Shown here is a 134-nucleotide sequence from Drymodes brunneopygia, a member of the family "Small nucleolar RNA SNORA84". The organism belongs to Drymodes, within Eukaryota. For this family Rfam cites "Experimental RNomics: identification of 140 candidates for small non-messenger RNAs in the plant Arabidopsis thaliana" (Marker et al., Curr Biol, 2002). Rfam links the family to the GO terms RNA processing and nucleolus. The family's RNA type in Rfam is H/ACA-box small nucleolar RNA. The base pairs follow the family's consensus structure, which was predicted with WAR.
RNA sequence: GCCCUGUGGUUGCUGGACUCUGCUGUGCCCGUGCAGUGCUCUGGUCGAGUGAACGGGCCCACAGUGACGCUGUGAUUCACGCAGGGAGUCUGUGAUCCGUGAGCAGCCUCCACAGCCCACUCACAGGCACACCC
Numbered sequence: 001g002c003c004c005u006g007u008g009g010u011u012g013c014u015g016g017a018c019u020c021u022g023c024u025g026u027g028c029c030c031g032u033g034c035a036g037u038g039c040u041c042u043g044g045u046c047g048a049g050u051g052a053a054c055g056g057g058c059c060c061a062c063a064g065u066g067a068c069g070c071u072g073u074g075a076u077u078c079a080c081g082c083a084g085g086g087a088g089u090c091u092g093u094g095a096u097c098c099g100u101g102a103g104c105a106g107c108c109u110c111c112a113c114a115g116c117c118c119a120c121u122c123a124c125a126g127g128c129a130c131a132c133c134c
Stems, first nucleotide, its partner, number of pairs: 001058004007051002010047001012045006020036004070126001072124004077119001081116002085111002088108001090106004